ALIL pseudoknot: a 115-nucleotide RNA sequence from Bordetella ansorpii. Rfam links the family to the GO term positive regulation of translational frameshifting. On this family, see Mazauric et al., J Biol Chem 2008: "Apical loop-internal loop RNA pseudoknots: a new type of stimulator of -1 translational frameshifting in bacteria". The family's RNA type in Rfam is cis-regulatory element. The match comes from Rfam's covariance-model search (86 bits).
RNA sequence: CGCUUUUUUCGCGCAGGCGGAGCUCGACCGCAAGCUGAGUCGUAAACACCUACAUCGACCGGCACCGGGUGUCUACGGGGUCGAGGCGAUCUGCAAGGUGUUGCAGGUUGCCUCG
Numbered sequence: 001c002g003c004u005u006u007u008u009u010c011g012c013g014c015a016g017g018c019g020g021a022g023c024u025c026g027a028c029c030g031c032a033a034g035c036u037g038a039g040u041c042g043u044a045a046a047c048a049c050c051u052a053c054a055u056c057g058a059c060c061g062g063c064a065c066c067g068g069g070u071g072u073c074u075a076c077g078g079g080g081u082c083g084a085g086g087c088g089a090u091c092u093g094c095a096a097g098g099u100g101u102u103g104c105a106g107g108u109u110g111c112c113u114c115g
Stems, first nucleotide, its partner, number of pairs: 017031004076115005087110002090107007